[Rfam]
The family of this 103-nucleotide RNA sequence from Sesamum indicum is "Small nucleolar RNA R30/Z108". From the family's description: snoR30 is a C/D box small nucleolar RNA which acts as a methylation guide for 18S ribosomal RNA in plants. Lineage of the source: Eukaryota > Embryophyta > Spermatophyta > Mesangiospermae > Sesamum. It scores 77 bits against the family's covariance model.
RNA sequence: UUGUUUUGCGAUGAGGAUAAAGACGCUCCCUCUUCUGAAAUUAAAGUUGAGGAUGCUUGCUGGCAGAAUCGAACCAAUAACUAAAUUUGCCGCCACUGAGUAA
Numbered sequence: 001u002u003g004u005u006u007u008g009c010g011a012u013g014a015g016g017a018u019a020a021a022g023a024c025g026c027u028c029c030c031u032c033u034u035c036u037g038a039a040a041u042u043a044a045a046g047u048u049g050a051g052g053a054u055g056c057u058u059g060c061u062g063g064c065a066g067a068a069u070c071g072a073a074c075c076a077a078u079a080a081c082u083a084a085a086u087u088u089g090c091c092g093c094c095a096c097u098g099a100g101u102a103a
Base pairs, nucleotide, nucleotide: 006103007102008101009100
Pairs were carried over by alignment from the consensus structure, which was predicted with PFOLD.